Rfam assigns this 72-nucleotide RNA sequence from Mucilaginibacter pallidiroseus to the family "Fluoride riboswitch aptamer (crcB RNA motif)". The source organism's lineage runs through Bacteria, Pseudomonadati, Sphingobacteriia, Sphingobacteriaceae and Mucilaginibacter.
RNA sequence: AACUCAAAAGGCAAUGGUGUCCUGCCUAAUCGAACCGCUUUUUUUAAGAAAGCUGAUGGCGCCUACCAAUAA
Numbered sequence: 001a002a003c004u005c006a007a008a009a010g011g012c013a014a015u016g017g018u019g020u021c022c023u024g025c026c027u028a029a030u031c032g033a034a035c036c037g038c039u040u041u042u043u044u045u046a047a048g049a050a051a052g053c054u055g056a057u058g059g060c061g062c063c064u065a066c067c068a069a070u071a072a
Stems, first nucleotide, its partner, number of pairs: 010026004016063006037053006